[Rfam]
RNA sequence: AGUGGAGGAUUCCAAAGGGAUCGCAUUGAUCCAUCUCUCCGUAACCGGCGCUCAAGAUCGAUGGAUCAGUGCAAUCCCUCUGGAAUUCUCCGC
Numbered sequence: 001a002g003u004g005g006a007g008g009a010u011u012c013c014a015a016a017g018g019g020a021u022c023g024c025a026u027u028g029a030u031c032c033a034u035c036u037c038u039c040c041g042u043a044a045c046c047g048g049c050g051c052u053c054a055a056g057a058u059c060g061a062u063g064g065a066u067c068a069g070u071g072c073a074a075u076c077c078c079u080c081u082g083g084a085a086u087u088c089u090c091c092g093c
Base pairs, nucleotide, nucleotide: 002093003092004091005090006089008087009086010085011084012083013082014081016079017078018077019076020075021074023072024071025070026068028067029066030065031064032063036060